[Rfam]
RNA sequence: CUUAGAAAAAGACAUUCUUGUAUAUGAUCAGUAAUAUGGUCUGAUUGUUUCUACCUAGUAACCGUAAAAAACUAGACUACAAGAAAGUUUGAAUAAAUU
Numbered sequence: 001c002u003u004a005g006a007a008a009a010a011g012a013c014a015u016u017c018u019u020g021u022a023u024a025u026g027a028u029c030a031g032u033a034a035u036a037u038g039g040u041c042u043g044a045u046u047g048u049u050u051c052u053a054c055c056u057a058g059u060a061a062c063c064g065u066a067a068a069a070a071a072c073u074a075g076a077c078u079a080c081a082a083g084a085a086a087g088u089u090u091g092a093a094u095a096a097a098u099u
Stems, first nucleotide, its partner, number of pairs: 015085008026046006055075005
RNA: Purine riboswitch aptamer